[Rfam]
Nucleotides: 600
Stems, first nucleotide, its partner, number of pairs: 007544009022529001023495002027466002029463006035456002045106003048061003067100006076088003111120003136149005156187001157185005167174002197204002208235005219225001238449004246279003256267004289386004299375002313361003319334005337341001343355003399420007427443005482489002552598010566587002574582003
Number, partner (000 for none) and nucleotide at each position: 001000u002000a003000c004000g005000c006000a007544g008543g009542c010541c011540a012539c013538u014537u015536g016000a017000u018000g019000g020000a021000u022529g023495g024494c025000u026000c027466g028465g029463c030462u031461c032460g033459g034458g035456c036455a037000c038000c039000g040000a041000u042000g043000a044000a045106g046105a047104c048061c049060g050059u051000g052000c053000c054000a055000a056000g057000c058000u059050g060049c061048g062000a063000u064000a065000u066000g067100c068099u069098u070097c071096g072095g073000g074000g075000a076088g077087g078086c079000g080000c081000a082000a083000g084000g085000a086078g087077c088076c089000u090000u091000a092000g093000a094000u095072c096071c097070g098069a099068a100067g101000a102000u103000u104047g105046u106045c107000g108000a109000a110000u111120g112119g113118g114000a115000a116000u117000u118113c119112c120111u121000g122000u123000c124000c125000c126000g127000c128000a129000a130000g131000g132000g133000a134000c135000a136149u137148u138147c139146u140145c141000g142000a143000a144000a145140g146139a147138g148137a149136a150000g151000a152000g153000g154000a155000a156187c157185c158184c159183c160182g161181g162000g163000a164000a165000u166000c167174g168173a169000a170000a171000c172000a173168u174167c175000c176000u177000a178000g179000u180000a181161c182160c183159g184158g185157g186000u187156g188000g189000a190000a191000a192000a193000g194000a195000a196000a197204u198203c199000a200000a201000u202000u203198g204197a205000g206000a207000u208235g209234c210233c211232g212231u213000u214000a215000g216000u217000a218000a219225g220000g221000g222000c223000g224000a225219c226000c227000g228000a229000a230000a231212g232211c233210g234209g235208c236000g237000a238449a239448g240447g241446g242000c243000a244000a245000a246279c247278c248277g249000a250000a251000u252000a253000g254000c255000c256267u257266c258265u259264c260000a261000a262000a263000a264259g265258a266257g267256a268000g269000g270000a271000a272000a273000g274000a275000u276000g277248u278247g279246g280000a281000g282000u283000u284000u285000g286000g287000a288000g289386u290385c291384a292383g293000g294000c295000u296000a297000a298000u299375a300374c301000c302000c303000u304000g305000g306000a307000u308000a309000a310000u311000a312000a313361g314360u315359u316000c317000a318000a319334g320333u321332u322331u323330c324000u325000g326000g327000a328000a329000a330323g331322a332321g333320a334319c335000a336000c337341c338000u339000u340000a341337g342000a343355g344354g345353g346000u347000g348000a349000u350000a351000g352000u353345c354344c355343c356000g357000u358000g359315g360314a361313c362000g363000a364000a365000u366000u367000u368000a369000u370000c371000c372000g373000a374300g375299u376000u377000a378000c379000a380000a381000g382000c383292u384291u385290g386289a387000a388000u389000u390000u391000c392000c393000g394000g395000a396000g397000u398000a399420c400419c401418g402417u403416g404415c405414g406000u407000c408000g409000g410000u411000u412000a413000u414405c415404g416403c417402g418401c419400g420399g421000g422000a423000a424000c425000a426000u427443g428442g429441g430440u431439c432000u433000c434000a435000c436000u437000a438000a439431g440430a441429u442428c443427c444000a445000a446241c447240c448239c449238u450000a451000a452000a453000u454000a455036u456035g457000u458034c459033c460032c461031g462030a463029g464000u465028c466027c467000g468000a469000u470000a471000g472000c473000a474000a475000a476000c477000u478000a479000g480000u481000a482489c483488c484000g485000c486000g487000a488483g489482g490000g491000a492000a493000a494024g495023c496000u497000g498000a499000a500000a501000a502000g503000u504000a505000g506000c507000c508000c509000g510000a511000a512000a513000g514000g515000g516000u517000g518000g519000u520000g521000a522000a523000a524000a525000g526000g527000a528000c529022c530000u531000g532000a533000a534000a535000c536015c537014a538013a539012g540011u541010g542009g543008c544007u545000a546000u547000u548000a549000a550000c551000u552598g553597g554596c555595a556594a557593u558592g559591c560590g561589u562000g563000a564000a565000a566587g567586a568000a569000a570000u571000g572000a573000a574582g575581u576580u577000u578000u579000u580576a581575a582574c583000u584000g585000a586567u587566c588000a589561g590560c591559g592558u593557g594556u595555u596554g597553c598552c599000g600000u